A member of the RNA family "Nitrogen stress-induced RNA 1" from Planktothrix tepida, 52 nucleotides long. The pairing is the family consensus, mapped onto this sequence. A reference for the family is Ionescu et al. (2010), "Heterocyst-specific transcription of NsiR1, a non-coding RNA encoded in a tandem array of direct repeats in cyanobacteria", J Mol Biol. The match comes from Rfam's covariance-model search (44 bits). The source organism's lineage runs through Bacteria, Bacillati, Oscillatoriophycideae, Oscillatoriales and Planktothrix tepida. By type it is a small RNA.
[Rfam]
RNA sequence: GAGUAGAUGCACCCUGAUGGUUUUCCUUCAACUUCGGUUGAGGGAUUUUUUU
Number, nucleotide and partner (000 for none) at each position: 001g000002a000003g012004u011005a000006g000007a000008u000009g000010c000011a004012c003013c000014c000015u000016g000017a000018u000019g000020g000021u000022u000023u000024u000025c044026c043027u042028u041029c040030a039031a038032c037033u000034u000035c000036g000037g032038u031039u030040g029041a028042g027043g026044g025045a000046u000047u000048u000049u000050u000051u000052u000